[Rfam]
RNA sequence: UCACGUUCAUCCAAGUUUAUAUCUCUGGACGCAUGAAAUGGGAGUAGGGAACGGGAUUCUCAU
Numbered sequence: 001u002c003a004c005g006u007u008c009a010u011c012c013a014a015g016u017u018u019a020u021a022u023c024u025c026u027g028g029a030c031g032c033a034u035g036a037a038a039u040g041g042g043a044g045u046a047g048g049g050a051a052c053g054g055g056a057u058u059c060u061c062a063u
Stems, first nucleotide, its partner, number of pairs: 004053005010029004038063008